[Rfam]
RNA: Selenocysteine insertion sequence 1
RNA sequence: GAUGCGUCCAUGAAGUCACCAGCCCCAAGCCCCUCGUGGUGGGUGGUGAUGGAACCGUCAAAGCAGU
Dot-bracket structure: (.(((.........(((((((.((.....(.(...).)..)).)))))))............))).)
Numbered sequence: 001g002a003u004g005c006g007u008c009c010a011u012g013a014a015g016u017c018a019c020c021a022g023c024c025c026c027a028a029g030c031c032c033c034u035c036g037u038g039g040u041g042g043g044u045g046g047u048g049a050u051g052g053a054a055c056c057g058u059c060a061a062a063g064c065a066g067u
Stems, first nucleotide, its partner, number of pairs: 001067001003065003015050007023042002030038001032036001